[Rfam]
RNA sequence: UCCCGGGUGACUGGGAGUCUGAAGGAAGCCGGAUGGCAAAGCGCUGGCCUGACGAACAGGAAGCGGAUACGAGGCGUGGCGACUGGGUAAGGUGUCCCAAUUCACCGAAGCCCGAAACUUGCACCGACGUUGCUACGUAGAUCCGACAGGCAUGAGCGUGAAGGUGGGUGCG
Numbered sequence: 001u002c003c004c005g006g007g008u009g010a011c012u013g014g015g016a017g018u019c020u021g022a023a024g025g026a027a028g029c030c031g032g033a034u035g036g037c038a039a040a041g042c043g044c045u046g047g048c049c050u051g052a053c054g055a056a057c058a059g060g061a062a063g064c065g066g067a068u069a070c071g072a073g074g075c076g077u078g079g080c081g082a083c084u085g086g087g088u089a090a091g092g093u094g095u096c097c098c099a100a101u102u103c104a105c106c107g108a109a110g111c112c113c114g115a116a117a118c119u120u121g122c123a124c125c126g127a128c129g130u131u132g133c134u135a136c137g138u139a140g141a142u143c144c145g146a147c148a149g150g151c152a153u154g155a156g157c158g159u160g161a162a163g164g165u166g167g168g169u170g171c172g
Base pairs, nucleotide, nucleotide: 001016002015003014004013005012006011030170031169036165037164041159042158043157044156045155047151048150049149050148051147064145065144066143067142068141074138075137076136078134079133080132081131082130083129085113086112087111088110091106092105093104094103